Shown here is a 79-nucleotide sequence from Agrococcus pavilionensis, a member of the family "ZMP/ZTP riboswitch aptamer (pfl RNA motif)".
The literature on the family includes a 2015 paper in Nat Struct Mol Biol by Jones and Ferre-D'Amare, "Recognition of the bacterial alarmone ZMP through long-distance association of two RNA subdomains".
RNA sequence: GGGAGCGGCCGUGACUGGCGCAAUGGUGGAGCACCACCGGGGAGCGGCCGAGCAGCCGCCGCGCGCCUGGGCAUCCGAA
Number, nucleotide and partner (000 for none) at each position: 001g000002g000003g053004a000005g000006c050007g049008g048009c047010c046011g045012u044013g000014a000015c041016u040017g067018g066019c065020g064021c063022a000023a000024u000025g000026g037027u036028g035029g034030a000031g000032c000033a000034c029035c028036a027037c026038c000039g000040g016041g015042g000043a000044g012045c011046g010047g009048c008049c007050g006051a000052g000053c003054a000055g000056c000057c000058g072059c071060c070061g000062c000063g021064c020065g019066c018067c017068u000069g000070g060071g059072c058073a000074u000075c000076c000077g000078a000079a000
The match comes from Rfam's covariance-model search (58 bits). Gene Ontology terms of the family: regulation of purine nucleotide biosynthetic process and one-carbon metabolic process. The organism belongs to Agrococcus pavilionensis, within Bacteria.